About this RNA: A member of the RNA family "mir-26 microRNA precursor family" from Mus musculus, 80 nucleotides long. The base pairs follow the family's consensus structure, which was predicted with RNAalifold.
RNA sequence: CUGCGGCUGGAUUCAAGUAAUCCAGGAUAGGCUGUGUCCGUCCAUGAGGCCUGUUCUUGAUUACUUGUUUCUGGAGGCAG
Numbered sequence: 001c002u003g004c005g006g007c008u009g010g011a012u013u014c015a016a017g018u019a020a021u022c023c024a025g026g027a028u029a030g031g032c033u034g035u036g037u038c039c040g041u042c043c044a045u046g047a048g049g050c051c052u053g054u055u056c057u058u059g060a061u062u063a064c065u066u067g068u069u070u071c072u073g074g075a076g077g078c079a080g
Stems, first nucleotide, its partner, number of pairs: 002079003007074005014067009024057010